The record is a 66-nucleotide sequence from Terrihalobacillus insolitus, which matches "Bacillaceae-1 RNA" in Rfam. Pairs were carried over by alignment from the consensus structure, which is taken from published work. It scores 62 bits against the family's covariance model.

RNA sequence: CAAAUUAGAAGGUCGACUAAUAUCGCCACGUCCUGUGGCAACGUCGACACUAGCACGUCCUGUGCG
Numbered sequence: 001c002a003a004a005u006u007a008g009a010a011g012g013u014c015g016a017c018u019a020a021u022a023u024c025g026c027c028a029c030g031u032c033c034u035g036u037g038g039c040a041a042c043g044u045c046g047a048c049a050c051u052a053g054c055a056c057g058u059c060c061u062g063u064g065c066g
Stems, first nucleotide, its partner, number of pairs: 012048006025039005053065004